[Rfam]
RNA sequence: GCGGUUCCGGUUCACGUCGAAGCCCCUCGCGGGCGCUCCACGGUGAGUGUGACGACCCGGCGGCC
Numbered sequence: 001g002c003g004g005u006u007c008c009g010g011u012u013c014a015c016g017u018c019g020a021a022g023c024c025c026c027u028c029g030c031g032g033g034c035g036c037u038c039c040a041c042g043g044u045g046a047g048u049g050u051g052a053c054g055a056c057c058c059g060g061c062g063g064c065c
Base pairs, nucleotide, nucleotide: 003065004064005063007060008059009058010057015054016053017052018051019050023049
Rfam assigns this 65-nucleotide RNA sequence from Trebonia kvetii to the family "L31-Actinobacteria ribosomal protein leader". The source organism's lineage runs through Bacteria, Actinomycetes, Streptosporangiales, Treboniaceae and Trebonia. A reference for the family is Eckert and Weinberg (2020), "Discovery of 20 novel ribosomal leader candidates in bacteria and archaea", BMC Microbiol.